[Rfam]
RNA sequence: GUUAUCGCAUAACUCCGAGCUUGUUUACCUAAGUUGAAAAAUAAGGAAACAAUGCCAGCAAAUAUAAUUGCUCAGGGAUAAUAUUGGAAACGACUUAUCCUUUCUUAUUUAAAAAGGUGUCUAGUGCAAAGAUCU
Numbered sequence: 001g002u003u004a005u006c007g008c009a010u011a012a013c014u015c016c017g018a019g020c021u022u023g024u025u026u027a028c029c030u031a032a033g034u035u036g037a038a039a040a041a042u043a044a045g046g047a048a049a050c051a052a053u054g055c056c057a058g059c060a061a062a063u064a065u066a067a068u069u070g071c072u073c074a075g076g077g078a079u080a081a082u083a084u085u086g087g088a089a090a091c092g093a094c095u096u097a098u099c100c101u102u103u104c105u106u107a108u109u110u111a112a113a114a115a116g117g118u119g120u121c122u123a124g125u126g127c128a129a130a131g132a133u134c135u
Base pairs, nucleotide, nucleotide: 003129006126012120013119015117016116019055020054022052025049026048028046029045033042034041035040057072058071059070060069061068075101076100077099078098079097080096084093085092086091102112103111
Dot-bracket structure: ..(..(.....((.((..((.(..((.((...(((....)))..)).))..).)).(((((......)))))..((((((...(((....)))..))))))((.......))...)).)).....)..)......
Overview
This 135-nucleotide RNA sequence from Histophilus somni belongs to the Rfam family "Molybdenum/Tungsten riboswitch aptamer (Moco RNA motif)". Taxonomically the source falls in Histophilus (Bacteria, Pseudomonadati, Gammaproteobacteria, Pasteurellaceae). The base pairs follow the family's consensus structure, which is taken from published work. Its family is annotated with molybdenum ion binding, tungstate binding and regulation of gene expression in the Gene Ontology.